[Rfam]
RNA sequence: UCUUAGGGAUGCUAGGGUUCCGGUUCGCAAGAAUGUCUGGUCCGAGAGCAGCCCGGUGCGGCAGUUCGUUCGACUCGGGCUCGAUCCGGGAGCGCGCGGCGGCUGCACUACACGGCGGGACAAAAGCCCGGGAGAU
Numbered sequence: 001u002c003u004u005a006g007g008g009a010u011g012c013u014a015g016g017g018u019u020c021c022g023g024u025u026c027g028c029a030a031g032a033a034u035g036u037c038u039g040g041u042c043c044g045a046g047a048g049c050a051g052c053c054c055g056g057u058g059c060g061g062c063a064g065u066u067c068g069u070u071c072g073a074c075u076c077g078g079g080c081u082c083g084a085u086c087c088g089g090g091a092g093c094g095c096g097c098g099g100c101g102g103c104u105g106c107a108c109u110a111c112a113c114g115g116c117g118g119g120a121c122a123a124a125a126g127c128c129c130g131g132g133a134g135a136u
Stems, first nucleotide, its partner, number of pairs: 007053002010050003015043002020040002022037001023034004055109008111131001113134001117129003
Shown here is a 136-nucleotide RNA sequence from Paraburkholderia phytofirmans, a member of the family "Guanidine-I riboswitch aptamer". A search with the family's covariance model found it, with a score of 76 bits. The source organism's lineage runs through Bacteria, Pseudomonadati, Pseudomonadota, Burkholderiaceae and Paraburkholderia phytofirmans. A reference for the family is Barrick et al. (2004), "New RNA motifs suggest an expanded scope for riboswitches in bacterial genetic control", Proc Natl Acad Sci U S A. The pairing is the family consensus, mapped onto this sequence. This family represents a conserved RNA structure found upstream of the ykkC and yxkD genes in Bacillus subtilis and related genes in other bacteria.